The family of this 122-nucleotide RNA is "DUF3800-I RNA". The base pairs follow the family's consensus structure, which is taken from published work. By type it is a small RNA. Rfam's curators write: Actinobacteria, Firmicutes, Fusobacteria, Proteobacteria (1 example), Tenericutes (2 examples).
RNA sequence: UUAAUUUACCGGAGAACAUCUCGUCAGGUCGAUAGUUAGGUAGUGAAUAGUUUUAUUUAAGCGUAUCUUAAAUACGCCACCCUAACUGGGAAAAGCCCUUGCGGGGCUUUUUUCUUUUUUAA
Numbered sequence: 001u002u003a004a005u006u007u008a009c010c011g012g013a014g015a016a017c018a019u020c021u022c023g024u025c026a027g028g029u030c031g032a033u034a035g036u037u038a039g040g041u042a043g044u045g046a047a048u049a050g051u052u053u054u055a056u057u058u059a060a061g062c063g064u065a066u067c068u069u070a071a072a073u074a075c076g077c078c079a080c081c082c083u084a085a086c087u088g089g090g091a092a093a094a095g096c097c098c099u100u101g102c103g104g105g106g107c108u109u110u111u112u113u114c115u116u117u118u119u120u121a122a
Base pairs, nucleotide, nucleotide: 008029009028010027011024012022013021014020033088034087035086036085037084038083043080044079045078046057047056048055061077062076063075064074065073066072090112091111092110093109094108095107096106097105098104099103